[Rfam]
RNA sequence: GCACUGGUGUAGCUCAGUGGUUACUUCGACCAACAAUUCUAUAUGAAUUAUGAUCUCCAUUCCUCUCUGGGAUCGAAACGCGGGCGCUGUCCAGUAUUUUA
Numbered sequence: 001g002c003a004c005u006g007g008u009g010u011a012g013c014u015c016a017g018u019g020g021u022u023a024c025u026u027c028g029a030c031c032a033a034c035a036a037u038u039c040u041a042u043a044u045g046a047a048u049u050a051u052g053a054u055c056u057c058c059a060u061u062c063c064u065c066u067c068u069g070g071g072a073u074c075g076a077a078a079c080g081c082g083g084g085c086g087c088u089g090u091c092c093a094g095u096a097u098u099u100u101a
Stems, first nucleotide, its partner, number of pairs: 003095005012085004017081003025077005
The record is a 101-nucleotide RNA sequence from Sander lucioperca, which matches "Vault RNA" in Rfam. It scores 55 bits against the family's covariance model. By type it is a non-coding RNA gene. The base pairs follow the family's consensus structure, which is taken from published work. About the family: This family of RNAs are found as part of the enigmatic vault ribonucleoprotein complex. The complex consists of a major vault protein (MVP), two minor vault proteins (VPARP and TEP1), and several small untranslated RNA molecules. It has been suggested that the vault complex is involved in drug resistance. NCBI's taxonomy places the organism under Eukaryota, Deuterostomia, Teleostei, Euacanthomorphacea, Sander. The literature on the family includes a 2009 paper in Mol Biol Evol by Stadler et al., "Evolution of Vault RNAs".